[Rfam]
RNA sequence: GUAGUGCUCCGGGGUCGGUGUAAGUCCGAACCGGCGGUAAAAGUCCGCGACCCGCUUCGGCGGCUGAUCCGGUGGAAGUCCGGAACCGACGGUGAAAGUCCGGAUGGGAGGAGCAGUCA
Number, nucleotide and partner (000 for none) at each position: 001g000002u000003a117004g000005u115006g114007c113008u112009c111010c110011g000012g000013g000014g000015u000016c028017g027018g026019u000020g000021u000022a000023a000024g000025u000026c018027c017028g016029a000030a099031c098032c088033g087034g048035c047036g046037g045038u000039a000040a000041a000042a000043g086044u085045c037046c036047g035048c034049g000050a000051c000052c063053c062054g000055c000056u000057u000058c000059g000060g000061c000062g053063g052064c000065u000066g000067a000068u084069c083070c082071g081072g080073u000074g000075g000076a000077a000078g000079u000080c072081c071082g070083g069084a068085a044086c043087c033088g032089a000090c102091g101092g100093u000094g000095a000096a000097a000098g031099u030100c092101c091102g090103g000104a000105u000106g000107g000108g000109a000110g010111g009112a008113g007114c006115a005116g000117u003118c000119a000

The record is a 119-nucleotide sequence from Nanchangia anserum, which matches "FMN riboswitch aptamer (RFN element)" in Rfam.
It scores 100 bits against the family's covariance model.
The source organism's lineage runs through Bacteria, Bacillati, Actinomycetales, Actinomycetaceae and Nanchangia.
The family's consensus secondary structure is taken from published work.